This 88-nucleotide sequence from Panicum virgatum belongs to the Rfam family "Small nucleolar RNA snoR27".
The family's RNA type in Rfam is C/D-box small nucleolar RNA.
Pairs were carried over by alignment from the consensus structure, which was predicted with WAR.
NCBI's taxonomy places the organism under Eukaryota, Streptophytina, Poales, Poaceae, Panicum sect. Hiantes.
Clan: snR68 clan.
The family has 6 seed sequences and 649 matches in Rfam 15.1.
RNA sequence: CAGGAUCGAUGAUGCAACCUUUAACUGCGUUAUCUUUCUGCAACCCAUUUAUGGGUGCUGAAGAACACAUAAGCUGCUGAUAUCCAUG
Numbered sequence: 001c002a003g004g005a006u007c008g009a010u011g012a013u014g015c016a017a018c019c020u021u022u023a024a025c026u027g028c029g030u031u032a033u034c035u036u037u038c039u040g041c042a043a044c045c046c047a048u049u050u051a052u053g054g055g056u057g058c059u060g061a062a063g064a065a066c067a068c069a070u071a072a073g074c075u076g077c078u079g080a081u082a083u084c085c086a087u088g
Base pairs, nucleotide, nucleotide: 001088002087003085004084005083006082